[Rfam]
RNA sequence: GAGCUUAUAACCCAAACGGGGGCAUUUGGUGGUUUGGACGUUGGGUUUCGUCCUCGAGUCUGGGUGCAAUUGGUGCAAAGGGCUGGUUCGCCCAGUCCAAGUUGGGUAGUGGGAUGCAUGGCCUAAGCGAAAGCUUGAGUCGCGCUUCCCCUGAAGCAGAGGGGACCGUGUGAGGCUGGUUUAACAGAGCAACGUACACUUCCCGCUCUCAACGGUGGAAGUUUAACGGGCGGGCCACCAAUUUUC
Numbered sequence: 001g002a003g004c005u006u007a008u009a010a011c012c013c014a015a016a017c018g019g020g021g022g023c024a025u026u027u028g029g030u031g032g033u034u035u036g037g038a039c040g041u042u043g044g045g046u047u048u049c050g051u052c053c054u055c056g057a058g059u060c061u062g063g064g065u066g067c068a069a070u071u072g073g074u075g076c077a078a079a080g081g082g083c084u085g086g087u088u089c090g091c092c093c094a095g096u097c098c099a100a101g102u103u104g105g106g107u108a109g110u111g112g113g114a115u116g117c118a119u120g121g122c123c124u125a126a127g128c129g130a131a132a133g134c135u136u137g138a139g140u141c142g143c144g145c146u147u148c149c150c151c152u153g154a155a156g157c158a159g160a161g162g163g164g165a166c167c168g169u170g171u172g173a174g175g176c177u178g179g180u181u182u183a184a185c186a187g188a189g190c191a192a193c194g195u196a197c198a199c200u201u202c203c204c205g206c207u208c209u210c211a212a213c214g215g216u217g218g219a220a221g222u223u224u225a226a227c228g229g230g231c232g233g234g235c236c237a238c239c240a241a242u243u244u245u246c
Stems, first nucleotide, its partner, number of pairs: 011029002014026001068243007084233001086231005093221001096219004101213006108207003111150004116145002119142004124137005152156001159202004168195004176187003
This 246-nucleotide RNA from Phoenix dactylifera belongs to the Rfam family "Protozoan signal recognition particle RNA". The literature on the family includes a 2002 paper in Curr Opin Struct Biol by Wild et al., "Towards the structure of the mammalian signal recognition particle". Its Rfam clan is "SRP clan". It is annotated as a non-coding RNA gene.